RNA sequence: AAGCUGUGAGGAAAUUCUCUGUCCCAGAGACGGUCUCAGAUGAGGCCGUCUUUGACGGCUGACAACCUCUAAGAAGUUCUGAGCUU
Numbered sequence: 001a002a003g004c005u006g007u008g009a010g011g012a013a014a015u016u017c018u019c020u021g022u023c024c025c026a027g028a029g030a031c032g033g034u035c036u037c038a039g040a041u042g043a044g045g046c047c048g049u050c051u052u053u054g055a056c057g058g059c060u061g062a063c064a065a066c067c068u069c070u071a072a073g074a075a076g077u078u079c080u081g082a083g084c085u086u
Stems, first nucleotide, its partner, number of pairs: 001086004
Small nucleolar RNA U61: an 86-nucleotide RNA sequence from Salix viminalis. NCBI's taxonomy places the organism under Eukaryota, Spermatophyta, Pentapetalae, rosids, Salix. It is annotated as a C/D-box small nucleolar RNA. The match comes from Rfam's covariance-model search (70 bits).